[Rfam]
RNA sequence: GGUUGCAAGUUUGAGGCUGAAGCAAAAGCAUUCACAAUGUAGCCUGUCAGAUCCCAGUGAAUCUGUGAGUUCUUGU
Numbered sequence: 001g002g003u004u005g006c007a008a009g010u011u012u013g014a015g016g017c018u019g020a021a022g023c024a025a026a027a028g029c030a031u032u033c034a035c036a037a038u039g040u041a042g043c044c045u046g047u048c049a050g051a052u053c054c055c056a057g058u059g060a061a062u063c064u065g066u067g068a069g070u071u072c073u074u075g076u
Stems, first nucleotide, its partner, number of pairs: 015044004021076001024073001026071002028040003048065005054059001
RNA: Mammalian CPEB3 ribozyme
Organism: Crocodylus porosus